The record is a 74-nucleotide RNA from Bombyx mori, which matches "mir-2816 microRNA precursor family" in Rfam. The match comes from Rfam's covariance-model search (71 bits). The organism belongs to Bombyx, within Eukaryota.
RNA sequence: CUCAACUUUACUCGAGUUAGGUAGAGCCGUGGUAUUGCGUCACCACGAUGUCAUCAGUUUGAGGAAAAUUUGAU
Numbered sequence: 001c002u003c004a005a006c007u008u009u010a011c012u013c014g015a016g017u018u019a020g021g022u023a024g025a026g027c028c029g030u031g032g033u034a035u036u037g038c039g040u041c042a043c044c045a046c047g048a049u050g051u052c053a054u055c056a057g058u059u060u061g062a063g064g065a066a067a068a069u070u071u072g073a074u
Stems, first nucleotide, its partner, number of pairs: 002073004009065001011063006017056001019054001021052001026049001028047004